[Rfam]
The record is a 90-nucleotide RNA from Phytoactinopolyspora halophila, which matches "ZMP/ZTP riboswitch aptamer (pfl RNA motif)" in Rfam. The base pairs follow the family's consensus structure, which is taken from published work.
RNA sequence: AGGCCGCGUCGCGACUGGCGCUGGGUGGAUAACCACCGGGGAGCGGCACACCAGCAGGAGACUUCGGGGUCGAACGCCUGGGCCCCGGCG
Numbered sequence: 001a002g003g004c005c006g007c008g009u010c011g012c013g014a015c016u017g018g019c020g021c022u023g024g025g026u027g028g029a030u031a032a033c034c035a036c037c038g039g040g041g042a043g044c045g046g047c048a049c050a051c052c053a054g055c056a057g058g059a060g061a062c063u064u065c066g067g068g069g070u071c072g073a074a075c076g077c078c079u080g081g082g083c084c085c086c087g088g089c090g
Stems, first nucleotide, its partner, number of pairs: 003052001006049001008047005015040002017078004025036004067085005